Rfam assigns this 104-nucleotide sequence from Nomascus leucogenys to the family "Small nucleolar RNA U6-53/MBII-28". Lineage of the source: Eukaryota > Mammalia > Eutheria > Boreoeutheria > Nomascus. It is annotated as a C/D-box small nucleolar RNA. On this family, see Huttenhofer et al., EMBO J 2001: "RNomics: an experimental approach that identifies 201 candidates for novel, small, non-messenger RNAs in mouse".
RNA sequence: CCCCUGUGAUGAGUUGCCUUGCUAAUACGGAGACACCAGGUAGGGAGUUUUACCCUAAAUUGGGUGUUGUUGAAAUAAACUCUUUCUCGUAAAUGCUGAGGGGC
Numbered sequence: 001c002c003c004c005u006g007u008g009a010u011g012a013g014u015u016g017c018c019u020u021g022c023u024a025a026u027a028c029g030g031a032g033a034c035a036c037c038a039g040g041u042a043g044g045g046a047g048u049u050u051u052a053c054c055c056u057a058a059a060u061u062g063g064g065u066g067u068u069g070u071u072g073a074a075a076u077a078a079a080c081u082c083u084u085u086c087u088c089g090u091a092a093a094u095g096c097u098g099a100g101g102g103g104c
Stems, first nucleotide, its partner, number of pairs: 001103004041057005